[Rfam]
Notes
Bacteroidales-1 6S-Bacteroidales RNA suggested: a 190-nucleotide sequence from Barnesiella sp. WM24. From the family's description: Bacteroidales-1 was first reported in a comparative genomics-based approach of genome and metagenome sequences from Weinberg et al. 2010 In a high-resolution transcriptome map study of Bacteroides thetaiotaomicron, Ryan et al. 2020 report this sRNA as 6S RNA homologue of Bacteroides, in the study they obtain evidence of small product RNAs (pRNAs) related to 6S function.
RNA sequence: UACCACAUCAAAGUUGAUUGGGAAACUCAUCAAAUUUAUAUGAAAUACCGAGACAAGCUUAGUCGACUGAUGGCGGGCCCCGACCGCUUUUCGGAGCGGUGGCUAAUAACCCAGGCGGAUUACAAAGGUUGGCGAGCACUCAAAUCCUGUCAUUCGGAGUUUCAUCGCAUCCUUUGGUGUGGUCCUAUAA
Numbered sequence: 001u002a003c004c005a006c007a008u009c010a011a012a013g014u015u016g017a018u019u020g021g022g023a024a025a026c027u028c029a030u031c032a033a034a035u036u037u038a039u040a041u042g043a044a045a046u047a048c049c050g051a052g053a054c055a056a057g058c059u060u061a062g063u064c065g066a067c068u069g070a071u072g073g074c075g076g077g078c079c080c081c082g083a084c085c086g087c088u089u090u091u092c093g094g095a096g097c098g099g100u101g102g103c104u105a106a107u108a109a110c111c112c113a114g115g116c117g118g119a120u121u122a123c124a125a126a127g128g129u130u131g132g133c134g135a136g137c138a139c140u141c142a143a144a145u146c147c148u149g150u151c152a153u154u155c156g157g158a159g160u161u162u163c164a165u166c167g168c169a170u171c172c173u174u175u176g177g178u179g180u181g182g183u184c185c186u187a188u189a190a
Stems, first nucleotide, its partner, number of pairs: 057137003062133007071124002078118002081115001087096003102111001104109001
Rfam classes the family as a small RNA. For this family Rfam cites "A high-resolution transcriptome map identifies small RNA regulation of metabolism in the gut microbe Bacteroides thetaiotaomicron" (Ryan et al., Nat Commun, 2020).